[Rfam]
RNA sequence: GCAUCUGAAUCUUUCCCGCUCCUUGCAAUAUAGUGCUGGACUGGAGACACAGGAUGCAACAGAAGAGCACAGGAAAUCCAGACAAGUUUCCUUUCACCACAAUGGAACUUGUCUCUACUUCUUUGCAACACUG
Numbered sequence: 001g002c003a004u005c006u007g008a009a010u011c012u013u014u015c016c017c018g019c020u021c022c023u024u025g026c027a028a029u030a031u032a033g034u035g036c037u038g039g040a041c042u043g044g045a046g047a048c049a050c051a052g053g054a055u056g057c058a059a060c061a062g063a064a065g066a067g068c069a070c071a072g073g074a075a076a077u078c079c080a081g082a083c084a085a086g087u088u089u090c091c092u093u094u095c096a097c098c099a100c101a102a103u104g105g106a107a108c109u110u111g112u113c114u115c116u117a118c119u120u121c122u123u124u125g126c127a128a129c130a131c132u133g
Base pairs, nucleotide, nucleotide: 001057002056003055004054005053013047014046016044017043018042021039022038067126068125069124071122072121080114081113082112083111084110085109086108087107094105095104096103

The family of this 133-nucleotide RNA sequence from Bucco capensis is "Small nucleolar RNA SNORA55". The source organism's lineage runs through Eukaryota, Archosauria, Aves, Bucconidae and Bucco. It is annotated as an H/ACA-box small nucleolar RNA.